The record is an 80-nucleotide RNA from Bos taurus, which matches "mir-6536 microRNA precursor family" in Rfam. The family's consensus secondary structure was predicted with RNAalifold.
[Rfam]
RNA sequence: ACUGACCAACUUUAAGUAUACGAUGAACUGCAGGGAAGCCUGGCAUGCUGCAGUUCAUCGUAUACUUAAAGUUGGUCAAU
Numbered sequence: 001a002c003u004g005a006c007c008a009a010c011u012u013u014a015a016g017u018a019u020a021c022g023a024u025g026a027a028c029u030g031c032a033g034g035g036a037a038g039c040c041u042g043g044c045a046u047g048c049u050g051c052a053g054u055u056c057a058u059c060g061u062a063u064a065c066u067u068a069a070a071g072u073u074g075g076u077c078a079a080u
Stems, first nucleotide, its partner, number of pairs: 001080001003078030038044002
Its family is annotated with miRNA-mediated post-transcriptional gene silencing and RISC complex in the Gene Ontology. NCBI's taxonomy places the organism under Eukaryota, Bilateria, Euteleostomi, Artiodactyla, Bos. Rfam's curators put it in the seed alignment.